[Rfam]
RNA sequence: AUCCUUGGCACUGGGUCGCUGAUUCAUCAGCAACCGCCAGCAGCCACGGUCGCCCCAGGCUGCGCCACGCCCCCGGCGUGUCGACCAUCCCCAUCCGCAUCGCGUCGUGCCGCGGAUGCCCGCCCGCCAGGGCGGAGAUGC
Numbered sequence: 001a002u003c004c005u006u007g008g009c010a011c012u013g014g015g016u017c018g019c020u021g022a023u024u025c026a027u028c029a030g031c032a033a034c035c036g037c038c039a040g041c042a043g044c045c046a047c048g049g050u051c052g053c054c055c056c057a058g059g060c061u062g063c064g065c066c067a068c069g070c071c072c073c074c075g076g077c078g079u080g081u082c083g084a085c086c087a088u089c090c091c092c093a094u095c096c097g098c099a100u101c102g103c104g105u106c107g108u109g110c111c112g113c114g115g116a117u118g119c120c121c122g123c124c125c126g127c128c129a130g131g132g133c134g135g136a137g138a139u140g141c
Base pairs, nucleotide, nucleotide: 012036013035014034018031019030020029021028022027040063041062042061043060044059045058048086049085050084051083064082066080067079068078069077070076112141113140114139120135121134122133123132124131125130
The family of this 141-nucleotide sequence from Achromobacter sp. AONIH1 is "radC RNA". The family's RNA type in Rfam is cis-regulatory element. It scores 66 bits against the family's covariance model. The base pairs follow the family's consensus structure, which is taken from published work.